RNA sequence: AACCUUUAGUUGGUUAAUGUUACACCAACAACGAAACCAACACGCCAGGCUUAUUCCUGUGGAGUUAAAUAUGAGCGAUAAAAUUAUUCACCUGACUGAC
Numbered sequence: 001a002a003c004c005u006u007u008a009g010u011u012g013g014u015u016a017a018u019g020u021u022a023c024a025c026c027a028a029c030a031a032c033g034a035a036a037c038c039a040a041c042a043c044g045c046c047a048g049g050c051u052u053a054u055u056c057c058u059g060u061g062g063a064g065u066u067a068a069a070u071a072u073g074a075g076c077g078a079u080a081a082a083a084u085u086a087u088u089c090a091c092c093u094g095a096c097u098g099a100c
Base pairs, nucleotide, nucleotide: 009079010078011077012076014074015073016072020067022065023064025062026061027060031058033056034055035054084099085098086097088095089094
A member of the RNA family "TrxA 5' UTR thermometer" from Escherichia coli, 100 nucleotides long. Taxonomically the source falls in Escherichia coli (Bacteria, Enterobacterales, Enterobacteriaceae, Escherichia). By type it is an RNA thermoregulator.